[Rfam]
RNA sequence: GAUAAGAGGGGUGAAAAACCCCUCCGCCGAAAGCCCAAGGUUUCCUGCGCAACGUUAAUCGGCGCAGGGUUAGUCGGCCCCUAAGGCGAGGCAGAAAUGCGUAGUCGAUGGGAAACAGGUUAAUAUUCCUGUACCUCUGUUUAUUGCGAUGAAGGGACGGAGUAGGUUAGGUCAGCCGGGCGUUGGUUGUCCCGGUUUAAGCGUGUAGGGAGUGUGUUUAGGAAAAUCCGGACGCACAAUUCUGAGGCGUGAUGACGAACUCCCACGUGGGGUGAAGUGAUUGAUACCAAGCUUCCAGGAAAAGCUUCUAAGCGUCAGGUAAAUAGAGACCGUACCCCAAACCGACACAGGUGGGCAGGGUGAGAAUCCCAAGGCGCU
Numbered sequence: 001g002a003u004a005a006g007a008g009g010g011g012u013g014a015a016a017a018a019c020c021c022c023u024c025c026g027c028c029g030a031a032a033g034c035c036c037a038a039g040g041u042u043u044c045c046u047g048c049g050c051a052a053c054g055u056u057a058a059u060c061g062g063c064g065c066a067g068g069g070u071u072a073g074u075c076g077g078c079c080c081c082u083a084a085g086g087c088g089a090g091g092c093a094g095a096a097a098u099g100c101g102u103a104g105u106c107g108a109u110g111g112g113a114a115a116c117a118g119g120u121u122a123a124u125a126u127u128c129c130u131g132u133a134c135c136u137c138u139g140u141u142u143a144u145u146g147c148g149a150u151g152a153a154g155g156g157a158c159g160g161a162g163u164a165g166g167u168u169a170g171g172u173c174a175g176c177c178g179g180g181c182g183u184u185g186g187u188u189g190u191c192c193c194g195g196u197u198u199a200a201g202c203g204u205g206u207a208g209g210g211a212g213u214g215u216g217u218u219u220a221g222g223a224a225a226a227u228c229c230g231g232a233c234g235c236a237c238a239a240u241u242c243u244g245a246g247g248c249g250u251g252a253u254g255a256c257g258a259a260c261u262c263c264c265a266c267g268u269g270g271g272g273u274g275a276a277g278u279g280a281u282u283g284a285u286a287c288c289a290a291g292c293u294u295c296c297a298g299g300a301a302a303a304g305c306u307u308c309u310a311a312g313c314g315u316c317a318g319g320u321a322a323a324u325a326g327a328g329a330c331c332g333u334a335c336c337c338c339a340a341a342c343c344g345a346c347a348c349a350g351g352u353g354g355g356c357a358g359g360g361u362g363a364g365a366a367u368c369c370c371a372a373g374g375c376g377c378u
Base pairs, nucleotide, nucleotide: 006024007023008022009021010020011019025376026375027374028373033356034355035354036353039336040335044068045067046066047065048064049063053061054060075332076331077330080111081110085106086105087104089102091100092099093098115132116131117130118129119128135328136327137326138325139324140323141322142321143320144319145318146313147312151308152307153306154305159295160294161293162292165288166287167286170282171281172280173279174278175196176195177194178193179192180191197255198254201250202249203248204247208243209242210241213236214235215234216233217232218231219230221229222228259273260272261271262270263269342351343350358370359369360368
Dot-bracket structure: .....((((((.......))))))((((....((((..((...((((((...((.....)).))))))......(((..((...(((.(.(((....))).).)))...))...(((((........)))))..(((((((((((((...((((....((((..(((..(((((((((((..........))))))((..((((...(((..(((((((.((.....)))))))))....)))...))))...))...(((((.....)))))....)))))...)))...)))).........))))...))....))))))))))).)))..)).....((......)).)))).(((.......)))..))))..
Rfam assigns this 378-nucleotide part of an RNA from Acidihalobacter ferrooxydans to the family "Bacterial large subunit ribosomal RNA". The source organism's lineage runs through Bacteria, Pseudomonadati, Pseudomonadota, Ectothiorhodospiraceae and Acidihalobacter. Rfam 15.1 lists 51,934 matches to the family in 10,816 species. The base pairs follow the family's consensus structure, which is taken from published work. It scores 2924 bits against the family's covariance model.